[Rfam]
RNA sequence: UAGCCACAAGACGAAGUGAUUGGGUCUACAGACUCAGGAAAGUCCCCGGGCAACAUACCGCAGAGAUGCGGCCUCGGAAACGGGGUGCUCUUCGAGGGAAAUCCUCUUUGCAAAAAGGGGCUGAGACAAGUGUGGAGCCUUUGGAUUUCCCCGAAGAAACUUUGCCAAACUCACAGUUAUUCACUUGACCCAUUGGGUUAACAGAACGGGGAUUACGAUCUUGUGGCU
Numbered sequence: 001u002a003g004c005c006a007c008a009a010g011a012c013g014a015a016g017u018g019a020u021u022g023g024g025u026c027u028a029c030a031g032a033c034u035c036a037g038g039a040a041a042g043u044c045c046c047c048g049g050g051c052a053a054c055a056u057a058c059c060g061c062a063g064a065g066a067u068g069c070g071g072c073c074u075c076g077g078a079a080a081c082g083g084g085g086u087g088c089u090c091u092u093c094g095a096g097g098g099a100a101a102u103c104c105u106c107u108u109u110g111c112a113a114a115a116a117g118g119g120g121c122u123g124a125g126a127c128a129a130g131u132g133u134g135g136a137g138c139c140u141u142u143g144g145a146u147u148u149c150c151c152c153g154a155a156g157a158a159a160c161u162u163u164g165c166c167a168a169a170c171u172c173a174c175a176g177u178u179a180u181u182c183a184c185u186u187g188a189c190c191c192a193u194u195g196g197g198u199u200a201a202c203a204g205a206a207c208g209g210g211g212a213u214u215a216c217g218a219u220c221u222u223g224u225g226g227c228u
Base pairs, nucleotide, nucleotide: 002228003227004226005225006224007223008222009221010220011219014186015185016184017183018182019181021036022035023034024033025032026031040214041213044211045210046209047208059070060069061068062067071086072085073084074083075082076081089157090156094150096148097147101146102145103144104143110138111137126133127132188198189197190196191195
Rfam assigns this 228-nucleotide RNA from Kingdonia uniflora to the family "RNase MRP". RNase MRP is an enzymatically active ribonucleoprotein with two distinct roles in eukaryotes. Taxonomically the source falls in Kingdonia (Eukaryota, Streptophyta, Euphyllophyta, Mesangiospermae). On this family, see Li et al., RNA 2002: "Phylogenetic analysis of the structure of RNase MRP RNA in yeasts".